[Rfam]
RNA: Metazoan signal recognition particle RNA
Organism: Oryctolagus cuniculus
RNA sequence: GCCGGGCGCGGUGGCGCGCGCCUGUAGUCCCAGCUACUCGGGAGGCUGAGGCCGGAGGAUCGCUUGAGUCCAGGAGUUCUGGGCUGUCGUGCGCUAUGCCGAUCGGGUGUCCGCACUAAGUUCGGCAUCAAUAUGGUGACCUCCCGGGAGCGGGGGACCACCAGGUUGCCUAAGGAGGGGUGAACCGGCCCAGGUCGGAAACGGAGCAGGUCAAAACUCCCGUGCUGAUCAGAAAUGUCGGCUUCGAGAAGACAUGUUAGUAGCUUGACUUUGGCCAUAGUGGAAGCAGUU
Numbered sequence: 001g002c003c004g005g006g007c008g009c010g011g012u013g014g015c016g017c018g019c020g021c022c023u024g025u026a027g028u029c030c031c032a033g034c035u036a037c038u039c040g041g042g043a044g045g046c047u048g049a050g051g052c053c054g055g056a057g058g059a060u061c062g063c064u065u066g067a068g069u070c071c072a073g074g075a076g077u078u079c080u081g082g083g084c085u086g087u088c089g090u091g092c093g094c095u096a097u098g099c100c101g102a103u104c105g106g107g108u109g110u111c112c113g114c115a116c117u118a119a120g121u122u123c124g125g126c127a128u129c130a131a132u133a134u135g136g137u138g139a140c141c142u143c144c145c146g147g148g149a150g151c152g153g154g155g156g157a158c159c160a161c162c163a164g165g166u167u168g169c170c171u172a173a174g175g176a177g178g179g180g181u182g183a184a185c186c187g188g189c190c191c192a193g194g195u196c197g198g199a200a201a202c203g204g205a206g207c208a209g210g211u212c213a214a215a216a217c218u219c220c221c222g223u224g225c226u227g228a229u230c231a232g233a234a235a236u237g238u239c240g241g242c243u244u245c246g247a248g249a250a251g252a253c254a255u256g257u258u259a260g261u262a263g264c265u266u267g268a269c270u271u272u273g274g275c276c277a278u279a280g281u282g283g284a285a286g287c288a289g290u291u
Stems, first nucleotide, its partner, number of pairs: 001046003004023007028043003051291001053289001055287001060283005066272003071267004079263002083261004088256004094251002097248001099246001106245002109242002112240001114237002117234001120230001122228007129168004134163005141156006169175002177220005187212004195204003